[Rfam]
RNA sequence: UGGGCAGUAUCCAUGCUGAACUGCACCCUUUUAAGUUCAAAAGUAGGCUUGUUUCUUAAUAUGAUUUCAUUGUUGAAUGGAAAAGCUAUGAACAAGAUCCUAUAUGAAAAUAGUUCUGCCUAGAUCCAAUAUGGACCGGGACAGAGGG
Number, nucleotide and partner (000 for none) at each position: 001u000002g027003g026004g024005c023006a022007g021008u020009a000010u019011c018012c000013a000014u000015g000016c000017u000018g011019a010020a008021c007022u006023g005024c004025a000026c003027c002028c000029u000030u000031u000032u000033a000034a000035g000036u000037u000038c000039a000040a000041a000042a000043g000044u000045a000046g000047g000048c000049u000050u000051g000052u000053u000054u000055c000056u000057u000058a000059a000060u000061a000062u000063g000064a000065u000066u000067u000068c000069a000070u000071u000072g000073u000074u000075g000076a000077a000078u000079g000080g000081a000082a000083a000084a000085g000086c000087u000088a000089u000090g000091a000092a000093c000094a000095a000096g000097a000098u000099c000100c000101u000102a000103u000104a000105u000106g000107a000108a000109a000110a000111u000112a000113g000114u000115u000116c144117u143118g142119c140120c139121u138122a000123g136124a000125u135126c134127c133128a000129a000130u000131a000132u000133g127134g126135a125136c123137c000138g121139g120140g119141a000142c118143a117144g116145a000146g000147g000148g000
Notes:
Shown here is a 148-nucleotide RNA sequence from Bacillus mesophilum, a member of the family "pan motif". It scores 47 bits against the family's covariance model. By type it is a cis-regulatory element. The family's consensus secondary structure is taken from published work.